Purine riboswitch aptamer: a 102-nucleotide sequence from Desulfosporosinus sp. I2. Lineage of the source: Bacteria > Bacillati > Bacillota > Clostridia > Desulfosporosinus. A search with the family's covariance model found it, with a score of 79 bits.
RNA sequence: UGAGACAAGUGAAUAUUAGUUCAUAUAGUAGCAGAGAUAAGGUCUGCAAGUUUCUACCGGGCUGCCGUAAAUGGUCCGACUAUGAGCGAAAGUGUACCUAGG
Numbered sequence: 001u002g003a004g005a006c007a008a009g010u011g012a013a014u015a016u017u018a019g020u021u022c023a024u025a026u027a028g029u030a031g032c033a034g035a036g037a038u039a040a041g042g043u044c045u046g047c048a049a050g051u052u053u054c055u056a057c058c059g060g061g062c063u064g065c066c067g068u069a070a071a072u073g074g075u076c077c078g079a080c081u082a083u084g085a086g087c088g089a090a091a092g093u094g095u096a097c098c099u100a101g102g
Stems, first nucleotide, its partner, number of pairs: 019087007029049001031047005058078007